[Rfam]
Rfam assigns this 254-nucleotide RNA sequence from Clostridium novyi to the family "T-box leader". The match comes from Rfam's covariance-model search (109 bits).
RNA sequence: UUAAAAUCGUGGAUCAGGAUUAGUACCUAAAGUACUAAGUUCUAGAGAGUUGAGGAUGGUGGAAUCUCAAUACAAUAGACUUUAGCGAAUGGACCUGUUAGAUGUAAGCCGAAAUCAUUUUGAAAGUAGUCUUUACCGUGUUUCGCACGUUAUAGCGAUAGGAUAUGUUAGUAUCUGAAAGAGAUGUAUUAUUAAAUAAUUUUAUUUUUAAUAAUAUAAUUUAGGUGGCAACGCGAAUACACUUCGCCCUAUUA
Dot-bracket structure: ......((......((((........(((((.......((........((((((...........)))))))).......)))))........))))...))..((((.(..................).)).)).(((.......))).................................................((.((((.....)))).))....((((.......(((((.....)))))))))...
Uncharged tRNA acts as the effector for transcription antitermination of genes in the T-box leader family. T-boxes are found upstream of many aminoacyl-tRNA synthetase genes and some amino acid biosynthetic genes usually in Gram-positive bacteria. The anticodon of a specific tRNA base pairs to a specifier sequence within the T-box motif, and the NCCA acceptor tail of the tRNA base pairs to a conserved bulge in the T-box antiterminator hairpin. Lineage of the source: Bacteria > Bacillota > Eubacteriales > Clostridiaceae > Clostridium novyi.